Shown here is an 88-nucleotide RNA sequence from Dufourea novaeangliae, a member of the family "mir-282 microRNA precursor family". The organism belongs to Dufourea, within Eukaryota. It scores 70 bits against the family's covariance model. On this family, see Li et al., BMC Genomics 2009: "Direct sequencing and expression analysis of a large number of miRNAs in Aedes aegypti and a multi-species survey of novel mosquito miRNAs".
[Rfam]
RNA sequence: GGAGUAACUUGGUUUAGCCUCUCCUAGGCUUUGUCUGUAUACGGAGAACGGAGACAUAGCCUAGAAUAGGUUAGGUCAGGGCUCGUUC
Numbered sequence: 001g002g003a004g005u006a007a008c009u010u011g012g013u014u015u016a017g018c019c020u021c022u023c024c025u026a027g028g029c030u031u032u033g034u035c036u037g038u039a040u041a042c043g044g045a046g047a048a049c050g051g052a053g054a055c056a057u058a059g060c061c062u063a064g065a066a067u068a069g070g071u072u073a074g075g076u077c078a079g080g081g082c083u084c085g086u087u088c
Stems, first nucleotide, its partner, number of pairs: 012076009027061004032056005